[Rfam]
RNA: MIR844 microRNA precursor family
Organism: Arabidopsis lyrata
RNA sequence: ACAUUGAAGAAAAGAAAGACUAGUAAGAUGGCUUAUAAGCCAAUGCGUAGAAGAGCUCACUCACUCUCAAAAUCCAGCUUAUAAGCCAUCUUACUAGUCCUUCUUUUCUUC
Dot-bracket structure: .....(((((...(((.((((((((((((((((((((((...((....(((.(((....)))..)))....))....)))))))))))))))))))))).))))))))...